The record is an 80-nucleotide RNA sequence from Streptomyces davaonensis, which matches "Streptomyces RNA 6106" in Rfam.
[Rfam]
RNA sequence: ACGCCGUCCCGAGCGGCGUUCGUGGCCUCGAACGGGCCUGCGAGGGGGUGGUGCCGUGUCGGCGCAGCACCACCCCCUCC
Numbered sequence: 001a002c003g004c005c006g007u008c009c010c011g012a013g014c015g016g017c018g019u020u021c022g023u024g025g026c027c028u029c030g031a032a033c034g035g036g037c038c039u040g041c042g043a044g045g046g047g048g049u050g051g052u053g054c055c056g057u058g059u060c061g062g063c064g065c066a067g068c069a070c071c072a073c074c075c076c077c078u079c080c
Stems, first nucleotide, its partner, number of pairs: 001019007020043006026036003044077011056065003

Background: On this family, see Vockenhuber et al., RNA Biol 2011: "Deep sequencing-based identification of small non-coding RNAs in Streptomyces coelicolor". The source organism's lineage runs through Bacteria, Bacillati, Actinomycetes, Kitasatosporales and Streptomyces davaonensis. The sequence is in the family's curated seed alignment. Identified by deep sequencing of transcriptome at the end of exponential growth phase. Appears smaller on northern blot than sequencing transcript. This indicates processing step.